This 248-nucleotide RNA from Salix dunnii belongs to the Rfam family "RNase MRP". The match comes from Rfam's covariance-model search (82 bits). Taxonomically the source falls in Salix (Eukaryota, Streptophyta, eudicotyledons, fabids). Gene Ontology terms of the family: ribonuclease MRP complex, ribonuclease MRP activity and rRNA processing.
RNA sequence: AACACUGUGAGUAGGAGUGGAUGGGUCGUUUAAAGACCCAGGAAAGUCCCCGGGCCAUCUCUGCAGAAAUGCAGCCCAGGAAACUGGGAUGCUUAGCCAUCGGAUCUCUCUGUGCCUUGCGCAGAGGGCUGAGACAGGUGUGGAGCCCCUUGGGGUCCGGUGCUAGGUAACUUGGCCGAACGUACAGUUAUUCACUCAGUUCACAGAAGACUGUGGACCUACAGAACGGGGCUUAUUACUCAUGGUGU
Numbered sequence: 001a002a003c004a005c006u007g008u009g010a011g012u013a014g015g016a017g018u019g020g021a022u023g024g025g026u027c028g029u030u031u032a033a034a035g036a037c038c039c040a041g042g043a044a045a046g047u048c049c050c051c052g053g054g055c056c057a058u059c060u061c062u063g064c065a066g067a068a069a070u071g072c073a074g075c076c077c078a079g080g081a082a083a084c085u086g087g088g089a090u091g092c093u094u095a096g097c098c099a100u101c102g103g104a105u106c107u108c109u110c111u112g113u114g115c116c117u118u119g120c121g122c123a124g125a126g127g128g129c130u131g132a133g134a135c136a137g138g139u140g141u142g143g144a145g146c147c148c149c150u151u152g153g154g155g156u157c158c159g160g161u162g163c164u165a166g167g168u169a170a171c172u173u174g175g176c177c178g179a180a181c182g183u184a185c186a187g188u189u190a191u192u193c194a195c196u197c198a199g200u201u202c203a204c205a206g207a208a209g210a211c212u213g214u215g216g217a218c219c220u221a222c223a224g225a226a227c228g229g230g231g232c233u234u235a236u237u238a239c240u241c242a243u244g245g246u247g248u
Stems, first nucleotide, its partner, number of pairs: 002248009015197006023039005029033001044234003048231004062073004075088005091168003098162006107155004119148001121146002134141002199218006